Shown here is a 437-nucleotide RNA from Paraglaciecola sp. MB-3u-78, a member of the family "cspA thermoregulator". Lineage of the source: Bacteria > Pseudomonadati > Alteromonadales > Alteromonadaceae > Paraglaciecola. Rfam links the family to the GO terms regulation of translation and response to temperature stimulus. On this family, see Giuliodori et al., Mol Cell 2010: "The cspA mRNA is a thermosensor that modulates translation of the cold-shock protein CspA".
[Rfam]
RNA sequence: AUAUGUUAGAGAUAUACUACUUAAGCUUGAAAGUAAGUUUGAUAUUUAUGUACAUUGUUUCGACGUUCCAUAGCAGUACCCGGUCUCGUAGCUCAUAAGUAAUUGCAACACUCUUCAGCACAACUAACGUCUCUUAGGAGACACAAUUACUCUUGAAAAAUAUAGGAAAGACUAUGUCUGCAACUACUGGUACAGUAAAAUGGUUUAACGAAUCUAAAGGUUUCGGUUUCAUUCAACAAGAAAACGGCCCUGAUGUUUUUGCUCACUUCCGUGCUAUCACAGGUACUGGCUUUAAAACUUUGGCCGAAGGUCAAAAAGUUGAGUUCACUGUAACUCAAGGCCAAAAAGGCCCUCAAGCUGAGAACAUCGUAGUACUUUAAUUAUCGAAUAAUUAGAAUUCUAUAAGAAAAAGCAAACCUCAGGGUUUGCUUUUUUUA
Numbered sequence: 001a002u003a004u005g006u007u008a009g010a011g012a013u014a015u016a017c018u019a020c021u022u023a024a025g026c027u028u029g030a031a032a033g034u035a036a037g038u039u040u041g042a043u044a045u046u047u048a049u050g051u052a053c054a055u056u057g058u059u060u061c062g063a064c065g066u067u068c069c070a071u072a073g074c075a076g077u078a079c080c081c082g083g084u085c086u087c088g089u090a091g092c093u094c095a096u097a098a099g100u101a102a103u104u105g106c107a108a109c110a111c112u113c114u115u116c117a118g119c120a121c122a123a124c125u126a127a128c129g130u131c132u133c134u135u136a137g138g139a140g141a142c143a144c145a146a147u148u149a150c151u152c153u154u155g156a157a158a159a160a161u162a163u164a165g166g167a168a169a170g171a172c173u174a175u176g177u178c179u180g181c182a183a184c185u186a187c188u189g190g191u192a193c194a195g196u197a198a199a200a201u202g203g204u205u206u207a208a209c210g211a212a213u214c215u216a217a218a219g220g221u222u223u224c225g226g227u228u229u230c231a232u233u234c235a236a237c238a239a240g241a242a243a244a245c246g247g248c249c250c251u252g253a254u255g256u257u258u259u260u261g262c263u264c265a266c267u268u269c270c271g272u273g274c275u276a277u278c279a280c281a282g283g284u285a286c287u288g289g290c291u292u293u294a295a296a297a298c299u300u301u302g303g304c305c306g307a308a309g310g311u312c313a314a315a316a317a318g319u320u321g322a323g324u325u326c327a328c329u330g331u332a333a334c335u336c337a338a339g340g341c342c343a344a345a346a347a348g349g350c351c352c353u354c355a356a357g358c359u360g361a362g363a364a365c366a367u368c369g370u371a372g373u374a375c376u377u378u379a380a381u382u383a384u385c386g387a388a389u390a391a392u393u394a395g396a397a398u399u400c401u402a403u404a405a406g407a408a409a410a411a412g413c414a415a416a417c418c419u420c421a422g423g424g425u426u427u428g429c430u431u432u433u434u435u436u437a
Stems, first nucleotide, its partner, number of pairs: 001015003027236004037230001041228003045218002052215001054213002058210001060208001062206002065204003069176005080166002083163002086160001088106004178190003244331004252260002263321001265319004272313002274310002278303001281300002287296001338353003355377003358372003362368001381405003386400004407434012